[Rfam]
RNA sequence: UCAACCAGAAUGCUUCCAACGGGUUCCAGCACGGAUGCGGUCCGAUGUGCCGUAUGAGCGGAUGCGAUGCGCAAAGACCGGUCGGCCCUGCCGAAGCCCUUCUUUCGCAGGGACAUCCUUGCUGGAAUCGCGUCGUAUGCGGUAACGCAAUACCACCCAUGGUCUCCUCGCGCUAACCCCGUAGCGUGUGGUUUUUAGCGGGCUCAGCGCCCGCUUUUUUUU
Dot-bracket structure: ....(((............((.(((((((((.(((((.(((....((((..((((......))))..)))).....)))..(((((...)))))..((((........)))).))))).)))))))))))...(((........)))............)))...((.(((((((......))))))).)).....(((((((.....))))))).......
Numbered sequence: 001u002c003a004a005c006c007a008g009a010a011u012g013c014u015u016c017c018a019a020c021g022g023g024u025u026c027c028a029g030c031a032c033g034g035a036u037g038c039g040g041u042c043c044g045a046u047g048u049g050c051c052g053u054a055u056g057a058g059c060g061g062a063u064g065c066g067a068u069g070c071g072c073a074a075a076g077a078c079c080g081g082u083c084g085g086c087c088c089u090g091c092c093g094a095a096g097c098c099c100u101u102c103u104u105u106c107g108c109a110g111g112g113a114c115a116u117c118c119u120u121g122c123u124g125g126a127a128u129c130g131c132g133u134c135g136u137a138u139g140c141g142g143u144a145a146c147g148c149a150a151u152a153c154c155a156c157c158c159a160u161g162g163u164c165u166c167c168u169c170g171c172g173c174u175a176a177c178c179c180c181g182u183a184g185c186g187u188g189u190g191g192u193u194u195u196u197a198g199c200g201g202g203c204u205c206a207g208c209g210c211c212c213g214c215u216u217u218u219u220u221u222u
Stems, first nucleotide, its partner, number of pairs: 005162003020130002023128009033118005039079003046071004052065004082094005097112004134147003166191002169188007197215007

This 222-nucleotide sequence belongs to the Rfam family "Burkholderia sRNA Bp1_Cand871_SIPHT". The family's consensus secondary structure was predicted with CMfinder. By type it is a small RNA. Its family is annotated with bacterial biofilm matrix in the Gene Ontology.